[Rfam]
RNA sequence: CACCGAGUCCGAGGUUCCGGUGGUCAUCCGGAACCUGGUGCGAUUGGGA
Numbered sequence: 001c002a003c004c005g006a007g008u009c010c011g012a013g014g015u016u017c018c019g020g021u022g023g024u025c026a027u028c029c030g031g032a033a034c035c036u037g038g039u040g041c042g043a044u045u046g047g048g049a
Stems, first nucleotide, its partner, number of pairs: 013035008
raiA-hairpin RNA: a 49-nucleotide sequence from Streptomyces sp. UH6. By type it is a small RNA. Lineage of the source: Bacteria > Bacillati > Actinomycetota > Streptomycetaceae > Streptomyces. The family's consensus secondary structure is taken from published work. A search with the family's covariance model found it, with a score of 58 bits.